Notes:
Rfam assigns this 43-nucleotide RNA sequence from Galliscardovia ingluviei to the family "Guanidine-II riboswitch aptamer (mini-ykkC)". Rfam describes the family as follows. Simpler in structure and has fewer highly conserved nucleotide positions than the ykkC-yxkD leader. Despite this each of its two stem-loop structures directly bind free guanidine. Therefore, mini-ykkC RNA motif represents a distinct class of guanidine-sensing RNAs. Its crystal structure was also determined.
Nucleotides: 043
Base pairs, nucleotide, nucleotide: 001020002019003018004017005016006015007014008013032043033042034041035040
Number, partner (000 for none) and nucleotide at each position: 001020c002019a003018g004017g005016u006015a007014g008013g009000a010000c011000g012000a013008c014007c015006u016005a017004u018003c019002u020001g021000c022000u023000u024000c025000u026000u027000u028000c029000a030000a031000a032043g033042a034041g035040g036000a037000c038000g039000g040035c041034c042033u043032c

A search with the family's covariance model found it, with a score of 36 bits.
NCBI's taxonomy places the organism under Bacteria, Actinomycetes, Bifidobacteriales, Bifidobacteriaceae, Galliscardovia.
Gene Ontology term of the family: regulation of gene expression.